RNA sequence: GAGCUAUGAAGAAGAGUUUAAAGGAAUCUGAGAUUCCAUUGAAGACAUUUGUUCCAACUCUGAGCUCACUUAAAAA
Numbered sequence: 001g002a003g004c005u006a007u008g009a010a011g012a013a014g015a016g017u018u019u020a021a022a023g024g025a026a027u028c029u030g031a032g033a034u035u036c037c038a039u040u041g042a043a044g045a046c047a048u049u050u051g052u053u054c055c056a057a058c059u060c061u062g063a064g065c066u067c068a069c070u071u072a073a074a075a076a
Base pairs, nucleotide, nucleotide: 001067002066003065004064
The family of this 76-nucleotide sequence from Pitta sordida is "Small nucleolar RNA SNORD19". A reference for the family is Huttenhofer et al. (2001), "RNomics: an experimental approach that identifies 201 candidates for novel, small, non-messenger RNAs in mouse", EMBO J. The base pairs follow the family's consensus structure. Taxonomically the source falls in Pitta (Eukaryota, Deuterostomia, Craniata, Passeriformes). Clan: SNORD19 clan. Rfam 15.1 lists 1,431 matches to the family in 609 species.